RNA: SmY spliceosomal RNA
Organism: Caenorhabditis remanei
RNA sequence: CGUAAAUUGUAACAACACACAAGGCCUUGUUUAAGACCUGCUGUAAAAUUUUUGGAGACCCUGUCCUUCAUUGGGCAGGGAU
Numbered sequence: 001c002g003u004a005a006a007u008u009g010u011a012a013c014a015a016c017a018c019a020c021a022a023g024g025c026c027u028u029g030u031u032u033a034a035g036a037c038c039u040g041c042u043g044u045a046a047a048a049u050u051u052u053u054g055g056a057g058a059c060c061c062u063g064u065c066c067u068u069c070a071u072u073g074g075g076c077a078g079g080g081a082u
Stems, first nucleotide, its partner, number of pairs: 022039003026035003059080008